[Rfam]
RNA sequence: UGCGUGGAUAGGGUCGCUCCCGACAAGCCGUUACCCUGACGGUUUCCACGCAAUCUGACAAUCAGGG
Numbered sequence: 001u002g003c004g005u006g007g008a009u010a011g012g013g014u015c016g017c018u019c020c021c022g023a024c025a026a027g028c029c030g031u032u033a034c035c036c037u038g039a040c041g042g043u044u045u046c047c048a049c050g051c052a053a054u055c056u057g058a059c060a061a062u063c064a065g066g067g
Stems, first nucleotide, its partner, number of pairs: 001052008011021003027043004034067006